[Rfam]
RNA: Y RNA
RNA sequence: AGCUAGUCCCAGUACAGUGUUGUUUACAAGGAAUUGAUCACGAACACAGAUUUCUUUGUUCCUUCUCCACUCCCACUGCUUCACUUGACUAGCCUAAA
Numbered sequence: 001a002g003c004u005a006g007u008c009c010c011a012g013u014a015c016a017g018u019g020u021u022g023u024u025u026a027c028a029a030g031g032a033a034u035u036g037a038u039c040a041c042g043a044a045c046a047c048a049g050a051u052u053u054c055u056u057u058g059u060u061c062c063u064u065c066u067c068c069a070c071u072c073c074c075a076c077u078g079c080u081u082c083a084c085u086u087g088a089c090u091a092g093c094c095u096a097a098a
Base pairs, nucleotide, nucleotide: 002093003092004091005090006089007088008087011085016077017076018075019074022072028060029059032056033055